[Rfam]
RNA sequence: GACCGUAUUGGUUCGAUCGGGAUACUCAUCAAUAAAAAAACGAAAACCGAGAUGACUUCUCUUGUCAAUGGCGGGCCACAAUGUCGCAAGACAUAGCUGUAAAGCCGGUGGAUUACAAAGGCGGAGAGCUCUCAAAUCUUAUAUAGCUCGGAGUUUUCAUCACAUCACUGGUACGGUCUUUUUU
Numbered sequence: 001g002a003c004c005g006u007a008u009u010g011g012u013u014c015g016a017u018c019g020g021g022a023u024a025c026u027c028a029u030c031a032a033u034a035a036a037a038a039a040a041c042g043a044a045a046a047c048c049g050a051g052a053u054g055a056c057u058u059c060u061c062u063u064g065u066c067a068a069u070g071g072c073g074g075g076c077c078a079c080a081a082u083g084u085c086g087c088a089a090g091a092c093a094u095a096g097c098u099g100u101a102a103a104g105c106c107g108g109u110g111g112a113u114u115a116c117a118a119a120g121g122c123g124g125a126g127a128g129c130u131c132u133c134a135a136a137u138c139u140u141a142u143a144u145a146g147c148u149c150g151g152a153g154u155u156u157u158c159a160u161c162a163c164a165u166c167a168c169u170g171g172u173a174c175g176g177u178c179u180u181u182u183u184u
Base pairs, nucleotide, nucleotide: 056128057127059126060125062124063123064122065121066120069117070116076111077110078109079108096105097104098103
A member of the RNA family "Bacteroidales-1 6S-Bacteroidales RNA suggested" from Prevotella sp. CAG:1058, 184 nucleotides long.
It scores 134 bits against the family's covariance model.
The organism belongs to Prevotella, within Bacteria.
Bacteroidales-1 was first reported in a comparative genomics-based approach of genome and metagenome sequences from Weinberg et al. 2010 In a high-resolution transcriptome map study of Bacteroides thetaiotaomicron, Ryan et al. 2020 report this sRNA as 6S RNA homologue of Bacteroides, in the study they obtain evidence of small product RNAs (pRNAs) related to 6S function.